[Rfam]
RNA sequence: UCUAGAACUCAAGAUAUGGGCUGAACACUAAACGGUGUCUGGGCUGGAAUACAGAUUCGGACUUCUUUGUUGUUGCUAUAAUUUGGACUUGAAAACGGCCUUGUUAAAUCUUGGGCUCCUCAUGAAAGUUAUAGGCCUAUGUCUUACCUUUCCAUC
Numbered sequence: 001u002c003u004a005g006a007a008c009u010c011a012a013g014a015u016a017u018g019g020g021c022u023g024a025a026c027a028c029u030a031a032a033c034g035g036u037g038u039c040u041g042g043g044c045u046g047g048a049a050u051a052c053a054g055a056u057u058c059g060g061a062c063u064u065c066u067u068u069g070u071u072g073u074u075g076c077u078a079u080a081a082u083u084u085g086g087a088c089u090u091g092a093a094a095a096c097g098g099c100c101u102u103g104u105u106a107a108a109u110c111u112u113g114g115g116c117u118c119c120u121c122a123u124g125a126a127a128g129u130u131a132u133a134g135g136c137c138u139a140u141g142u143c144u145u146a147c148c149u150u151u152c153c154a155u156c
Stems, first nucleotide, its partner, number of pairs: 003154001005152003009146001011145010021134003025130001027129003035123003041119003045115001048112002051109001054105003059100002062098002068092001072088003
MIR2912 microRNA precursor family: a 156-nucleotide sequence from Populus deltoides. The organism belongs to Populus, within Eukaryota.